[Rfam]
About this RNA:
Rfam assigns this 164-nucleotide sequence from Cladocopium goreaui to the family "mraW RNA". The organism belongs to Cladocopium, within Eukaryota. Rfam classes the family as a cis-regulatory element. The match comes from Rfam's covariance-model search (53 bits).

RNA sequence: CUGGCGGAGCUUCCUCUGCGAGAAGAGGCUCCUGGCAGAGCUUCUGCGCCAGGAAGCCGCCUCCUGGCGCACUUUUUGCUGCGAGGAAGCGUGGCGGCUUCCUGGCGCAGAAGCUCUGCCAGGAGCCUCUUCUCGCAGAGGAAGCUCCGCCAGGAGCCUCUUCA
Numbered sequence: 001c002u003g004g005c006g007g008a009g010c011u012u013c014c015u016c017u018g019c020g021a022g023a024a025g026a027g028g029c030u031c032c033u034g035g036c037a038g039a040g041c042u043u044c045u046g047c048g049c050c051a052g053g054a055a056g057c058c059g060c061c062u063c064c065u066g067g068c069g070c071a072c073u074u075u076u077u078g079c080u081g082c083g084a085g086g087a088a089g090c091g092u093g094g095c096g097g098c099u100u101c102c103u104g105g106c107g108c109a110g111a112a113g114c115u116c117u118g119c120c121a122g123g124a125g126c127c128u129c130u131u132c133u134c135g136c137a138g139a140g141g142a143a144g145c146u147c148c149g150c151c152a153g154g155a156g157c158c159u160c161u162u163c164a
Stems, first nucleotide, its partner, number of pairs: 001153007009145002012142050